[Rfam]
RNA sequence: GAACGUUGGGUCUCCCAGGGAGGCCGCAGUCAGACCCAGGCCAUGCAACGGGGGCCUGGG
Numbered sequence: 001g002a003a004c005g006u007u008g009g010g011u012c013u014c015c016c017a018g019g020g021a022g023g024c025c026g027c028a029g030u031c032a033g034a035c036c037c038a039g040g041c042c043a044u045g046c047a048a049c050g051g052g053g054g055c056c057u058g059g060g
Stems, first nucleotide, its partner, number of pairs: 004050005010024005035060006041053002
The family of this 60-nucleotide sequence from Synechococcus sp. KORDI-100 is "Glutamine-II riboswitch aptamer". On this family, see Huang et al., Nucleic Acids Res 2019: "Structure and ligand binding of the glutamine-II riboswitch". A search with the family's covariance model found it, with a score of 54 bits. Its family is annotated with glutamine binding in the Gene Ontology.